[Rfam]
RNA sequence: CACGACCGGCCGGACACGUGCGUCGCGAGACCGCGGACCCGGCCCACAAGUGGAGUCCUUCGAACUCCCACCUGAUCGCCCUCCGGGCGGCGGGUCACCGGUCAGGCGAAAGCCGCCCGCCCAGGGCGUCGGUCGCCGAUGCGCGCCCCGUGACGUCUCACGGCGGUGCUCCGGUAGCAGUUCGAGGAGCCCCGCCUGUGAAACCGUGCGGGGCAUUUUUG
Numbered sequence: 001c002a003c004g005a006c007c008g009g010c011c012g013g014a015c016a017c018g019u020g021c022g023u024c025g026c027g028a029g030a031c032c033g034c035g036g037a038c039c040c041g042g043c044c045c046a047c048a049a050g051u052g053g054a055g056u057c058c059u060u061c062g063a064a065c066u067c068c069c070a071c072c073u074g075a076u077c078g079c080c081c082u083c084c085g086g087g088c089g090g091c092g093g094g095u096c097a098c099c100g101g102u103c104a105g106g107c108g109a110a111a112g113c114c115g116c117c118c119g120c121c122c123a124g125g126g127c128g129u130c131g132g133u134c135g136c137c138g139a140u141g142c143g144c145g146c147c148c149c150g151u152g153a154c155g156u157c158u159c160a161c162g163g164c165g166g167u168g169c170u171c172c173g174g175u176a177g178c179a180g181u182u183c184g185a186g187g188a189g190c191c192c193c194g195c196c197u198g199u200g201a202a203a204c205c206g207u208g209c210g211g212g213g214c215a216u217u218u219u220u221g
Base pairs, nucleotide, nucleotide: 004103005102006101007100008099009098012040013039041096042095043094044093045092047074048073050071051070052069053068054066055065076090077089078088079087080086081085105137106136107135108134109133114128115127116126117125145214146213147212148211149210150209151206152205159200160199161198162196163195164194165193166192168190169189170188171187172186